[Rfam]
RNA sequence: GGUUGCAUCCUAGUAGAUUGGGAAACUCAUCAAAUCUUAUGAAAUACCGAGAACAAAGCUUUCUCUUCUAAUGGCGGGCCACGCCGAGAGGUAUGCAUUAUGCACGGUGGAUUACAAAGGAAGGGGGCACUCAAAUCCUGUUAUUCGGAGUUUCAUCGCAUCCUAUGAUGCAACCUUUCUU
Numbered sequence: 001g002g003u004u005g006c007a008u009c010c011u012a013g014u015a016g017a018u019u020g021g022g023a024a025a026c027u028c029a030u031c032a033a034a035u036c037u038u039a040u041g042a043a044a045u046a047c048c049g050a051g052a053a054c055a056a057a058g059c060u061u062u063c064u065c066u067u068c069u070a071a072u073g074g075c076g077g078g079c080c081a082c083g084c085c086g087a088g089a090g091g092u093a094u095g096c097a098u099u100a101u102g103c104a105c106g107g108u109g110g111a112u113u114a115c116a117a118a119g120g121a122a123g124g125g126g127g128c129a130c131u132c133a134a135a136u137c138c139u140g141u142u143a144u145u146c147g148g149a150g151u152u153u154c155a156u157c158g159c160a161u162c163c164u165a166u167g168a169u170g171c172a173a174c175c176u177u178u179c180u181u
Stems, first nucleotide, its partner, number of pairs: 058128003062125002065123005072116002079110004083092003095103003
Shown here is a 181-nucleotide RNA sequence from Coprobacter fastidiosus, a member of the family "Bacteroidales-1 6S-Bacteroidales RNA suggested". For this family Rfam cites "A high-resolution transcriptome map identifies small RNA regulation of metabolism in the gut microbe Bacteroides thetaiotaomicron" (Ryan et al., Nat Commun, 2020). Rfam's curators write: Bacteroidales-1 was first reported in a comparative genomics-based approach of genome and metagenome sequences from Weinberg et al. 2010 In a high-resolution transcriptome map study of Bacteroides thetaiotaomicron, Ryan et al. 2020 report this sRNA as 6S RNA homologue of Bacteroides, in the study they obtain evidence of small product RNAs (pRNAs) related to 6S function. A search with the family's covariance model found it, with a score of 132 bits. It is annotated as a small RNA.